Rfam assigns this 143-nucleotide RNA sequence from Gossypium harknessii to the family "MIR7502 microRNA precursor family".
RNA sequence: UGUUAAAACUUCCAUCCAUUUCUACUAUUAAAAACUAGAUCCUAUACGUCAGCACAAGGUACACUUGGUACGCCACAUGUAAUUGUGGUUAUUCUGUUAGUCACGUCAAUUUUUAACAAAAGAAAUUAAUGAAAUUUUUAAUA
Numbered sequence: 001u002g003u004u005a006a007a008a009c010u011u012c013c014a015u016c017c018a019u020u021u022c023u024a025c026u027a028u029u030a031a032a033a034a035c036u037a038g039a040u041c042c043u044a045u046a047c048g049u050c051a052g053c054a055c056a057a058g059g060u061a062c063a064c065u066u067g068g069u070a071c072g073c074c075a076c077a078u079g080u081a082a083u084u085g086u087g088g089u090u091a092u093u094c095u096g097u098u099a100g101u102c103a104c105g106u107c108a109a110u111u112u113u114u115a116a117c118a119a120a121a122g123a124a125a126u127u128a129a130u131g132a133a134a135u136u137u138u139u140a141a142u143a
Stems, first nucleotide, its partner, number of pairs: 002142007010134002013131003018126006026118001028116006
The base pairs follow the family's consensus structure, which was predicted with RNAalifold. A search with the family's covariance model found it, with a score of 77 bits.